[Rfam]
RNA: Guanidine-I riboswitch aptamer
Organism: Paenibacillus polymyxa
RNA sequence: AAAAACGUUUUCUAGGGUUCCGCAAUCGCAAGAUUGGUCUGGUCCAAGAGAAAACGCACAGCCAAGUGGCUGUGACACGGAGGGAUAAAAGCCUGGGAGAU
Numbered sequence: 001a002a003a004a005a006c007g008u009u010u011u012c013u014a015g016g017g018u019u020c021c022g023c024a025a026u027c028g029c030a031a032g033a034u035u036g037g038u039c040u041g042g043u044c045c046a047a048g049a050g051a052a053a054a055c056g057c058a059c060a061g062c063c064a065a066g067u068g069g070c071u072g073u074g075a076c077a078c079g080g081a082g083g084g085a086u087a088a089a090a091g092c093c094u095g096g097g098a099g100a101u
Stems, first nucleotide, its partner, number of pairs: 007055006015045002020042002022039001023036005057074007076096001078099001082094003